[Rfam]
Source information:
Shown here is a 73-nucleotide sequence from Luteimonas chenhongjianii, a member of the family "tRNA". The family's consensus secondary structure is taken from published work. A search with the family's covariance model found it, with a score of 61 bits. By type it is a transfer RNA.
RNA sequence: GCUCCCUUCGUCUAGAGGCCCAGGACGUGGCCCUCUCAAGGCUAAAACACGGGUUCGAAUCCCGUAGGGAGCA
Numbered sequence: 001g002c003u004c005c006c007u008u009c010g011u012c013u014a015g016a017g018g019c020c021c022a023g024g025a026c027g028u029g030g031c032c033c034u035c036u037c038a039a040g041g042c043u044a045a046a047a048c049a050c051g052g053g054u055u056c057g058a059a060u061c062c063c064g065u066a067g068g069g070a071g072c073a
Stems, first nucleotide, its partner, number of pairs: 001072007010026004028044005049065005